[Rfam]
RNA sequence: AUCACACGGAAAGAGGUCUCGCCUUGACGCGGCUGGAAAUCUUUGACACGGCAUCCUGCGGCGAUUCCGGCAUUGCUGUGUUUAUGACGACUCGGAAUCAUUGGGCACGUUUGAGAUGUGGGCUUUUGGGCGGGCUGCGAGGUGUGAAGACCCAUGGGGCUCGACGAUCGCGUUCGCGGGGUGAUGUUCGCCGACUGCGGUGCGCCUGGUGAGACCGGUCGCUUGGAUCGCGGCAGGGACGGGACCCAUCUCGAGUUGGAGUCAAAGUUUUGUACUUGUCCGGUCCUGCCGUGGACCUUGCGGGCGGCUCUCAUCAAGGCAAGCUGUAUUGAGGUGUCGUGCUCUGAGAACAGGUCUGUAUUUGGAACGGGACCGGGCUCGUGAAGAGCAGUCCCAGCCGCUCUCUCUCCAGAAAUGGCGAGGGAGCGGCCCCCCUUUUUU
Number, nucleotide and partner (000 for none) at each position: 001a000002u000003c000004a000005c000006a000007c000008g000009g000010a000011a000012a000013g000014a000015g000016g000017u000018c000019u000020c000021g000022c000023c000024u000025u000026g000027a000028c000029g000030c000031g000032g000033c000034u000035g000036g000037a000038a000039a000040u000041c000042u000043u000044u000045g000046a000047c000048a000049c000050g000051g000052c000053a000054u000055c000056c000057u000058g000059c000060g000061g000062c000063g000064a000065u000066u000067c000068c000069g000070g000071c000072a000073u000074u000075g000076c000077u000078g000079u000080g000081u000082u000083u000084a000085u000086g000087a000088c000089g000090a000091c000092u000093c000094g000095g000096a000097a000098u000099c000100a000101u000102u000103g000104g000105g000106c000107a000108c000109g000110u000111u000112u000113g000114a000115g000116a000117u000118g000119u000120g000121g000122g000123c000124u000125u000126u000127u000128g000129g000130g000131c000132g000133g000134g000135c000136u000137g000138c000139g000140a000141g000142g000143u000144g000145u000146g000147a000148a000149g000150a000151c000152c000153c000154a000155u000156g000157g000158g000159g000160c000161u000162c000163g000164a000165c000166g000167a000168u000169c000170g000171c000172g000173u000174u000175c000176g000177c000178g000179g000180g000181g000182u000183g000184a000185u000186g000187u000188u000189c000190g000191c000192c000193g000194a000195c000196u000197g000198c000199g000200g000201u000202g000203c000204g000205c000206c000207u000208g000209g000210u000211g000212a000213g000214a000215c000216c000217g000218g000219u000220c000221g000222c000223u000224u000225g000226g000227a000228u000229c000230g000231c000232g000233g000234c000235a000236g000237g000238g000239a000240c000241g000242g000243g263244a262245c261246c259247c258248a257249u000250c000251u000252c000253g000254a000255g000256u000257u248258g247259g246260a000261g245262u244263c243264a000265a277266a276267g275268u274269u000270u000271u000272g000273u000274a268275c267276u266277u265278g000279u000280c000281c000282g000283g000284u000285c000286c000287u000288g000289c000290c000291g000292u000293g000294g000295a000296c000297c000298u000299u000300g000301c000302g000303g000304g000305c000306g000307g000308c000309u000310c000311u000312c000313a000314u000315c000316a000317a000318g000319g000320c000321a000322a000323g000324c000325u000326g000327u000328a000329u000330u000331g000332a000333g000334g000335u000336g000337u000338c000339g000340u000341g000342c000343u000344c000345u000346g000347a000348g000349a000350a000351c000352a000353g000354g000355u000356c000357u000358g000359u000360a000361u000362u000363u000364g000365g000366a000367a000368c000369g000370g000371g000372a000373c000374c000375g000376g000377g000378c000379u000380c000381g000382u000383g000384a000385a000386g000387a000388g000389c000390a000391g000392u000393c000394c000395c000396a000397g000398c000399c000400g000401c000402u000403c000404u000405c000406u000407c000408u000409c000410c000411a000412g000413a000414a000415a000416u000417g000418g000419c000420g000421a000422g000423g000424g000425a000426g000427c000428g000429g000430c000431c000432c000433c000434c000435c000436u000437u000438u000439u000440u000441u000
RNA: Ascomycota telomerase RNA, nucleotides 1142 to 1582
Organism: Cytospora chrysosperma